[Rfam]
RNA sequence: CAUGUACAAACGCAAACCGUUUCGAAAGAGCGGGACGCAAAGUCAGGAAUCUGAUGCCCCUUAAGUCCGGGCUAUGGUCGUCCGGCCGCCGUG
Numbered sequence: 001c002a003u004g005u006a007c008a009a010a011c012g013c014a015a016a017c018c019g020u021u022u023c024g025a026a027a028g029a030g031c032g033g034g035a036c037g038c039a040a041a042g043u044c045a046g047g048a049a050u051c052u053g054a055u056g057c058c059c060c061u062u063a064a065g066u067c068c069g070g071g072c073u074a075u076g077g078u079c080g081u082c083c084g085g086c087c088g089c090c091g092u093g
Stems, first nucleotide, its partner, number of pairs: 012038002017033004022029002042086003046083003049078003056072004
Rfam assigns this 93-nucleotide RNA from Paenibacillus sp. FSL R5-0912 to the family "c-di-GMP-I riboswitch aptamer". NCBI's taxonomy places the organism under Bacteria, Bacillati, Bacillota, Paenibacillaceae, Paenibacillus. Pairs were carried over by alignment from the consensus structure, which is taken from published work. Rfam links the family to the GO term cyclic-di-GMP binding.